[Rfam]
Rfam assigns this 37-nucleotide sequence to the family "DUF805b RNA". Rfam's curators put it in the seed alignment.
RNA sequence: ACCGGGAAUGCCGAAAACCGAAAUAUUAGAGUAGGCA
Dot-bracket structure: ..(((....[[[.....))).............]]].